Description:
This 204-nucleotide RNA sequence from Candidatus Syntrophocurvum alkaliphilum belongs to the Rfam family "T-box leader". The source organism's lineage runs through Bacteria, Bacillota, Clostridia, Eubacteriales and Candidatus Syntrophocurvum. From the family's description: Uncharged tRNA acts as the effector for transcription antitermination of genes in the T-box leader family. The family's consensus secondary structure is taken from published work. It is annotated as a cis-regulatory leader.

RNA sequence: AAAAUAGCGAUGAUAAAGAGUAGUAGGAAAAUAAAUUCUUUUAAGAGAGCUAGGGGUGCUGGGACCUAGUAAGGAUUUUUCCGAAGGCACUUUUGAGCUACAGGAAGAAAGCCAGUAUGGUUAGUAAAGCCUGAUUCCAUGAGGUGGGUUAUUAAACAUAAUAACCAAUUAGGGUGGAACCGCGGGUAAAAACCCGUCCCUGUU
Numbered sequence: 001a002a003a004a005u006a007g008c009g010a011u012g013a014u015a016a017a018g019a020g021u022a023g024u025a026g027g028a029a030a031a032u033a034a035a036u037u038c039u040u041u042u043a044a045g046a047g048a049g050c051u052a053g054g055g056g057u058g059c060u061g062g063g064a065c066c067u068a069g070u071a072a073g074g075a076u077u078u079u080u081c082c083g084a085a086g087g088c089a090c091u092u093u094u095g096a097g098c099u100a101c102a103g104g105a106a107g108a109a110a111g112c113c114a115g116u117a118u119g120g121u122u123a124g125u126a127a128a129g130c131c132u133g134a135u136u137c138c139a140u141g142a143g144g145u146g147g148g149u150u151a152u153u154a155a156a157c158a159u160a161a162u163a164a165c166c167a168a169u170u171a172g173g174g175u176g177g178a179a180c181c182g183c184g185g186g187u188a189a190a191a192a193c194c195c196g197u198c199c200c201u202g203u204u
Stems, first nucleotide, its partner, number of pairs: 007098002015093004026082006038073003049070006119131003147166007171201004182197005